[Rfam]
RNA sequence: CAGCAUCUUACUGGGCAGCAUUGGAUGAUCCAUGCCGCUCUAAUACUGCCUGGUAAUGAUGAUGAA
Numbered sequence: 001c002a003g004c005a006u007c008u009u010a011c012u013g014g015g016c017a018g019c020a021u022u023g024g025a026u027g028a029u030c031c032a033u034g035c036c037g038c039u040c041u042a043a044u045a046c047u048g049c050c051u052g053g054u055a056a057u058g059a060u061g062a063u064g065a066a
Base pairs, nucleotide, nucleotide: 001064002063004061005060006059007058008056009055010054011053012052013051014050015049016048017047018046020044021043022042023041024040025039
A member of the RNA family "mir-8/mir-141/mir-200 microRNA precursor family", 66 nucleotides long.
The family is grouped with related families in Rfam's "mir-8 microRNA precursor clan".
Rfam links the family to the GO terms miRNA-mediated post-transcriptional gene silencing and RISC complex.